[Rfam]
RNA: XIST RNA A repeat
RNA sequence: AUGCCCAACGGGGCCUCGGAUACCUGCUGUUAU
Numbered sequence: 001a002u003g004c005c006c007a008a009c010g011g012g013g014c015c016u017c018g019g020a021u022a023c024c025u026g027c028u029g030u031u032a033u
Base pairs, nucleotide, nucleotide: 003014004013005012006011017026018025019024